[Rfam]
RNA sequence: GAUUUAUAAAGAAGCGUGGAGAGACAGGCUCUAUGAAGCGCUAGCAACCGGCCACUCAAGGUGGUAAGGUGCUAAAUCCUGAUCCGUCGGUUGGCGGAGAAUAUAAAUU
Numbered sequence: 001g002a003u004u005u006a007u008a009a010a011g012a013a014g015c016g017u018g019g020a021g022a023g024a025c026a027g028g029c030u031c032u033a034u035g036a037a038g039c040g041c042u043a044g045c046a047a048c049c050g051g052c053c054a055c056u057c058a059a060g061g062u063g064g065u066a067a068g069g070u071g072c073u074a075a076a077u078c079c080u081g082a083u084c085c086g087u088c089g090g091u092u093g094g095c096g097g098a099g100a101a102u103a104u105a106a107a108u109u
Base pairs, nucleotide, nucleotide: 001109002108003107004106005105006104007103008102013042014041015040016039017038021031022030023029025081026080027079028078043073044072045071046070048069049068051065052064053063054062077101083098084097085096086095087094088093
This 109-nucleotide RNA sequence from Imperialibacter sp. EC-SDR9 belongs to the Rfam family "SAM riboswitch aptamer (S box leader)". The base pairs follow the family's consensus structure, which is taken from published work. For this family Rfam cites "A critical base pair in k-turns determines the conformational class adopted, and correlates with biological function" (Huang et al., Nucleic Acids Res, 2016). A search with the family's covariance model found it, with a score of 79 bits.